The record is a 66-nucleotide RNA from Takifugu rubripes, which matches "mir-122 microRNA precursor family" in Rfam. The source organism's lineage runs through Eukaryota, Actinopterygii, Eurypterygia, Acanthomorphata and Takifugu.
RNA sequence: AGCUAUGGAGUGUGACAAUGGUGUUUGUUUCCUUUCUUUCAAACGCCAUUAUCACACUAAAUAGCU
Numbered sequence: 001a002g003c004u005a006u007g008g009a010g011u012g013u014g015a016c017a018a019u020g021g022u023g024u025u026u027g028u029u030u031c032c033u034u035u036c037u038u039u040c041a042a043a044c045g046c047c048a049u050u051a052u053c054a055c056a057c058u059a060a061a062u063a064g065c066u
Stems, first nucleotide, its partner, number of pairs: 009058007017050011